[Rfam]
RNA sequence: AUUCUGUUUCAGGGCGAGGUGAAAUUCCUCACUGGCGGUAAUCGACUUGGAGCGUCCGCAACGCUCAGCAAGCGAAAGUCCGCGACCCCGAUGCGCACGCGUCGGGCUGACUCCGGUGAAACUCCGGGACCAACGGUUACAGUCCGGAUGGAAGAGGCAGAGU
Numbered sequence: 001a002u003u004c005u006g007u008u009u010c011a012g013g014g015c016g017a018g019g020u021g022a023a024a025u026u027c028c029u030c031a032c033u034g035g036c037g038g039u040a041a042u043c044g045a046c047u048u049g050g051a052g053c054g055u056c057c058g059c060a061a062c063g064c065u066c067a068g069c070a071a072g073c074g075a076a077a078g079u080c081c082g083c084g085a086c087c088c089c090g091a092u093g094c095g096c097a098c099g100c101g102u103c104g105g106g107c108u109g110a111c112u113c114c115g116g117u118g119a120a121a122c123u124c125c126g127g128g129a130c131c132a133a134c135g136g137u138u139a140c141a142g143u144c145c146g147g148a149u150g151g152a153a154g155a156g157g158c159a160g161a162g163u
Stems, first nucleotide, its partner, number of pairs: 003161008017029003031143002033132002035083004087106002112128005134146003

Overview:
The record is a 163-nucleotide sequence from Eggerthella sp. YY7918, which matches "FMN riboswitch aptamer (RFN element)" in Rfam. The organism belongs to Eggerthella, within Bacteria. It scores 96 bits against the family's covariance model.